RNA sequence: GGAAUUUGGCAGGGGAGAUACCAUGAUCACGAAGGUGGUUUUCCCAGCGUGAGGCUUAUCCAUUGCACUUAUUCAUUGUGCUAACCCCUGCAAUUUCCCCAAAUGUGGGACACUCAACUGCAUAAUUUGUGGUAGUGGGGGACGGCAUUUGUGCUUUCCCCUG
Numbered sequence: 001g002g003a004a005u006u007u008g009g010c011a012g013g014g015g016a017g018a019u020a021c022c023a024u025g026a027u028c029a030c031g032a033a034g035g036u037g038g039u040u041u042u043c044c045c046a047g048c049g050u051g052a053g054g055c056u057u058a059u060c061c062a063u064u065g066c067a068c069u070u071a072u073u074c075a076u077u078g079u080g081c082u083a084a085c086c087c088c089u090g091c092a093a094u095u096u097c098c099c100c101a102a103a104u105g106u107g108g109g110a111c112a113c114u115c116a117a118c119u120g121c122a123u124a125a126u127u128u129g130u131g132g133u134a135g136u137g138g139g140g141g142a143c144g145g146c147a148u149u150u151g152u153g154c155u156u157u158c159c160c161c162u163g
Stems, first nucleotide, its partner, number of pairs: 009121004013045006020039005046089002049086001051085001053082003057078002093114001094112001095110002098108002137162006144155004